[Rfam]
RNA sequence: CCCUGGGCAGUGCCUCCAGGACUGACCAACCUGAGAAUGGUGUCUCCAGGUCAAUCUCAGGUUCGUCAGCCUGUGAGGUGCUGACCCUUC
Dot-bracket structure: ....((((((((((((..((.(((.(.(((((((((.((............)).))))))))).).))).))..))))))))).)))...
RNA: mir-1388 microRNA precursor family
Organism: Pipistrellus kuhlii